About this RNA: Rfam assigns this 179-nucleotide RNA sequence from Rhynchospora breviuscula to the family "U12 minor spliceosomal RNA". Rfam links the family to the GO terms mRNA branch site recognition, pre-mRNA branch point binding and U12 snRNP. On this family, see Tarn and Steitz, Trends Biochem Sci 1997: "Pre-mRNA splicing: the discovery of a new spliceosome doubles the challenge".

[Rfam]
RNA sequence: UUGCCUUAAACUAAUGAGUAAGGAAAACAAUGCGGGAGGUGAGAGCCGACCGCUGCGCAUUUAUGUAAAGAAAGAGUCCAAGUAAUUGGGCUCUGGCGCCUUUAUUUUUGGAGGGGUGAAAGGCUGGCCUGGCGCUGACGCUGCUUACUUUGCAGAACUCGCCUGUGCGGGCCUCCCUA
Numbered sequence: 001u002u003g004c005c006u007u008a009a010a011c012u013a014a015u016g017a018g019u020a021a022g023g024a025a026a027a028c029a030a031u032g033c034g035g036g037a038g039g040u041g042a043g044a045g046c047c048g049a050c051c052g053c054u055g056c057g058c059a060u061u062u063a064u065g066u067a068a069a070g071a072a073a074g075a076g077u078c079c080a081a082g083u084a085a086u087u088g089g090g091c092u093c094u095g096g097c098g099c100c101u102u103u104a105u106u107u108u109u110g111g112a113g114g115g116g117u118g119a120a121a122g123g124c125u126g127g128c129c130u131g132g133c134g135c136u137g138a139c140g141c142u143g144c145u146u147a148c149u150u151u152g153c154a155g156a157a158c159u160c161g162c163c164u165g166u167g168c169g170g171g172c173c174u175c176c177c178u179a
Base pairs, nucleotide, nucleotide: 004023005022006021007020008019032053033052034051035050038047039046055099056098057097058096115178116177118175121174122173123172124171125170127168129165132162133161134160141155142154143153144152
About this RNA
The family has 62 seed sequences and 2,106 matches in Rfam 15.1.